[Rfam]
RNA sequence: AGGGGAUAACUGGCAGUCACAGUAGAAGUGUUCACAUCGUGGCCCCUGCAGAUUCUGGUGAAUGUGCAAAUUCACCU
Numbered sequence: 001a002g003g004g005g006a007u008a009a010c011u012g013g014c015a016g017u018c019a020c021a022g023u024a025g026a027a028g029u030g031u032u033c034a035c036a037u038c039g040u041g042g043c044c045c046c047u048g049c050a051g052a053u054u055c056u057g058g059u060g061a062a063u064g065u066g067c068a069a070a071u072u073c074a075c076c077u
Base pairs, nucleotide, nucleotide: 013046016043017042018041021077022076025073026072027071028040029039030038049066050065052063053062054061055060
About this RNA
The record is a 77-nucleotide RNA from Catagonus wagneri, which matches "Mammalian CPEB3 ribozyme" in Rfam. Gene Ontology term of the family: RNA nuclease activity. The base pairs follow the family's consensus structure, which is taken from published work. A search with the family's covariance model found it, with a score of 52 bits. Rfam's curators write: The mammalian CPEB3 ribozyme is a self cleaving RNA located in the second intron of the CPEB3 gene which belongs to a family of genes regulating messenger RNA polyadenylation. Rfam 15.1 lists 5,706 matches to the family in 197 species. NCBI's taxonomy places the organism under Eukaryota, Metazoa, Craniata, Tetrapoda, Catagonus.